[Rfam]
RNA sequence: UCAAGCUCUGAUUGUCCAAACGCAAUUCUUGUCGCCAUUGUACCAAGAACUGUGUGUGGACAUCAAUGCUUGA
Numbered sequence: 001u002c003a004a005g006c007u008c009u010g011a012u013u014g015u016c017c018a019a020a021c022g023c024a025a026u027u028c029u030u031g032u033c034g035c036c037a038u039u040g041u042a043c044c045a046a047g048a049a050c051u052g053u054g055u056g057u058g059g060a061c062a063u064c065a066a067u068g069c070u071u072g073a
Stems, first nucleotide, its partner, number of pairs: 002072005009065004014061005021054004026049006

The record is a 73-nucleotide sequence from Dinothrombium tinctorium, which matches "mir-219 microRNA precursor family" in Rfam. For this family Rfam cites "Vertebrate microRNA genes" (Lim et al., Science, 2003). Rfam links the family to the GO terms miRNA-mediated post-transcriptional gene silencing and RISC complex.